[Rfam]
RNA sequence: CCUGGUGAGACCGAGUAACUCUCUUUAGAGCGAAAGCAGGACCGAUACGGAAGGAGGACUUGCUUCCCUGGCCGUCGGGUCAAAAACACUCCGUCGAUGCGGCCGUCUGGACGCUGCUUGCAUGGCUCGGAAGCGCGCGGGUACCGAGUUUCAUGGACGGCGCCGCUACGCAGUUAUAACACGCGCUCUAUAAAUACCACUGUACGAAGGAGACAAUCUAAUCUAUGACAAG
Numbered sequence: 001c002c003u004g005g006u007g008a009g010a011c012c013g014a015g016u017a018a019c020u021c022u023c024u025u026u027a028g029a030g031c032g033a034a035a036g037c038a039g040g041a042c043c044g045a046u047a048c049g050g051a052a053g054g055a056g057g058a059c060u061u062g063c064u065u066c067c068c069u070g071g072c073c074g075u076c077g078g079g080u081c082a083a084a085a086a087c088a089c090u091c092c093g094u095c096g097a098u099g100c101g102g103c104c105g106u107c108u109g110g111a112c113g114c115u116g117c118u119u120g121c122a123u124g125g126c127u128c129g130g131a132a133g134c135g136c137g138c139g140g141g142u143a144c145c146g147a148g149u150u151u152c153a154u155g156g157a158c159g160g161c162g163c164c165g166c167u168a169c170g171c172a173g174u175u176a177u178a179a180c181a182c183g184c185g186c187u188c189u190a191u192a193a194a195u196a197c198c199a200c201u202g203u204a205c206g207a208a209g210g211a212g213a214c215a216a217u218c219u220a221a222u223c224u225a226u227g228a229c230a231a232g
Stems, first nucleotide, its partner, number of pairs: 004043003019030004069082004089212004094207003098204001099166005104159005113121002124150007170203005178187001
RNA: RT-2 RNA